[Rfam]
Nucleotides: 036
Base pairs, nucleotide, nucleotide: 003014004013005012006011017026018025019024
Number, partner (000 for none) and nucleotide at each position: 001000c002000u003014g004013c005012c006011c007000a008000u009000c010000g011006g012005g013004g014003c015000c016000g017026c018025g019024g020000a021000u022000a023000c024019c025018u026017g027000c028000u029000g030000a031000a032000u033000u034000u035000u036000u